RNA sequence: AGGGCGACGGGGUCGACACCGCGAGUGACGAUCAGAUAGUCGCGGAUCGCGAUACUGUGGCGGGCCUC
Numbered sequence: 001a002g003g004g005c006g007a008c009g010g011g012g013u014c015g016a017c018a019c020c021g022c023g024a025g026u027g028a029c030g031a032u033c034a035g036a037u038a039g040u041c042g043c044g045g046a047u048c049g050c051g052a053u054a055c056u057g058u059g060g061c062g063g064g065c066c067u068c
Base pairs, nucleotide, nucleotide: 005062006061008059009058012029013028016026017025035056037054038053040052041051042050043049044048

Rfam assigns this 68-nucleotide RNA sequence from Nocardia vermiculata to the family "ASdes TB sRNA". NCBI's taxonomy places the organism under Bacteria, Actinomycetota, Actinomycetes, Nocardiaceae, Nocardia.